[Rfam]
RNA sequence: AGCCUUGCGCAGCGGUAAUAUCGUAACCAAUGAAGUUUAGCUGAGGUGCGAUUAUUGCUAGUUGAAAACUUUAACCAAUACCUCGUCAUAGUGGACGUGAAAUACCGUCCUCUAUGCCAAUUUUUGAAAGCCCGCAAGGGC
Number, nucleotide and partner (000 for none) at each position: 001a000002g000003c000004c000005u000006u000007g000008c000009g000010c000011a000012g000013c000014g000015g000016u000017a000018a000019u000020a052021u051022c050023g049024u048025a000026a047027c046028c045029a000030a000031u000032g000033a000034a042035g041036u040037u000038u000039a000040g036041c035042u034043g000044a000045g028046g027047u026048g024049c023050g022051a021052u020053u000054a000055u000056u000057g000058c000059u000060a000061g000062u000063u000064g000065a000066a000067a000068a000069c000070u000071u000072u000073a000074a000075c000076c000077a000078a000079u000080a000081c000082c000083u000084c000085g118086u000087c116088a000089u114090a113091g112092u000093g110094g109095a108096c107097g000098u000099g000100a000101a000102a000103u000104a000105c000106c000107g096108u095109c094110c093111u000112c091113u090114a089115u000116g087117c000118c085119a000120a000121u000122u000123u000124u000125u000126g000127a000128a000129a000130g141131c140132c139133c138134g000135c000136a000137a000138g133139g132140g131141c130
Overview
U4 spliceosomal RNA: a 141-nucleotide RNA from Musca domestica. Rfam links the family to the GO terms spliceosomal tri-snRNP complex assembly and U4 snRNP. U4 small nuclear RNA (U4 snRNA) is a component of the major U2-dependent spliceosome. It is annotated as a spliceosomal small nuclear RNA. It scores 114 bits against the family's covariance model.